[Rfam]
RNA sequence: UUCUUAUCCAGAGCGGCGGAGGGACUGGCCCGAUGAAACCCGGCAACCAAAUGGAGACAUUUAGGUGCCAAUUCCUGCAGAAUCCAAAUGGAUUUUGAGAGAUAAGAG
Numbered sequence: 001u002u003c004u005u006a007u008c009c010a011g012a013g014c015g016g017c018g019g020a021g022g023g024a025c026u027g028g029c030c031c032g033a034u035g036a037a038a039c040c041c042g043g044c045a046a047c048c049a050a051a052u053g054g055a056g057a058c059a060u061u062u063a064g065g066u067g068c069c070a071a072u073u074c075c076u077g078c079a080g081a082a083u084c085c086a087a088a089u090g091g092a093u094u095u096u097g098a099g100a101g102a103u104a105a106g107a108g
Base pairs, nucleotide, nucleotide: 001108002107003106004105005104006103007102008101013041015040016039021031022030023029025077027075028074042069043068044067045066047065048064049062050061051060052059073100078097079096080095081094082093083092
SAM riboswitch aptamer (S box leader): a 108-nucleotide RNA from Sporolactobacillus inulinus.
The source organism's lineage runs through Bacteria, Bacilli, Caryophanales, Sporolactobacillaceae and Sporolactobacillus inulinus.